Notes
The record is a 125-nucleotide RNA sequence from Ceyx cyanopectus, which matches "Small nucleolar RNA SNORA65" in Rfam. Rfam links the family to the GO terms nucleolus and RNA processing. NCBI's taxonomy places the organism under Eukaryota, Vertebrata, Teleostomi, Alcedinidae, Ceyx. On this family, see Huttenhofer et al., EMBO J 2001: "RNomics: an experimental approach that identifies 201 candidates for novel, small, non-messenger RNAs in mouse".
RNA sequence: CCCGCCACUGUGCCUGCCCUGCUCCGUGGCUGGCACAUUCCAGAGGUGAGCUGAGAGCAGCCCCAGACUAGGAAGCAGCCCUCUCCUGCUGUGGGGAGGCCUGUGCCGAAAGGCUGGGGACACAA
Number, nucleotide and partner (000 for none) at each position: 001c000002c000003c000004g000005c046006c045007a000008c043009u042010g041011u000012g000013c000014c000015u000016g000017c000018c033019c032020u000021g030022c029023u028024c000025c000026g000027u000028g023029g022030c021031u000032g019033g018034c000035a000036c000037a000038u000039u000040c000041c010042a009043g008044a000045g006046g005047u000048g000049a000050g000051c000052u000053g000054a000055g000056a000057g000058c000059a000060g000061c000062c118063c117064c116065a115066g000067a000068c000069u110070a000071g107072g106073a000074a000075g000076c103077a102078g101079c000080c099081c098082u000083c000084u095085c094086c093087u000088g000089c000090u000091g000092u000093g086094g085095g084096g000097a000098g081099g080100c000101c078102u077103g076104u000105g000106c072107c071108g000109a000110a069111a000112g000113g000114c000115u065116g064117g063118g062119g000120a000121c000122a000123c000124a000125a000